[Rfam]
RNA sequence: GUGCUGGCUAUGUCGUGUGGGUACAUCGAACACAUGGCUCCAAACCCUCCGACUGUUUGCCAAUCAGUCGACCCGGGUUCGAUUCCCGAUAGGGACUUCGGGUUUCGUUCCCACUCAUCACCCACUGACGCAAUCCAGCACUUUU
Numbered sequence: 001g002u003g004c005u006g007g008c009u010a011u012g013u014c015g016u017g018u019g020g021g022u023a024c025a026u027c028g029a030a031c032a033c034a035u036g037g038c039u040c041c042a043a044a045c046c047c048u049c050c051g052a053c054u055g056u057u058u059g060c061c062a063a064u065c066a067g068u069c070g071a072c073c074c075g076g077g078u079u080c081g082a083u084u085c086c087c088g089a090u091a092g093g094g095a096c097u098u099c100g101g102g103u104u105u106c107g108u109u110c111c112c113a114c115u116c117a118u119c120a121c122c123c124a125c126u127g128a129c130g131c132a133a134u135c136c137a138g139c140a141c142u143u144u145u
Stems, first nucleotide, its partner, number of pairs: 002140006012129004017125004025083007
Dot-bracket structure: .((((((....((((.((((....(((((((.............................................)))))))......................................)))))))).....)))))).....

The record is a 145-nucleotide sequence from Branchiostoma floridae, which matches "Vault RNA" in Rfam. Rfam describes the family as follows. This family of RNAs are found as part of the enigmatic vault ribonucleoprotein complex. The family has 73 seed sequences and 2,873 matches in Rfam 15.1. NCBI's taxonomy places the organism under Eukaryota, Chordata, Cephalochordata, Branchiostomatidae, Branchiostoma. It is annotated as a non-coding RNA gene.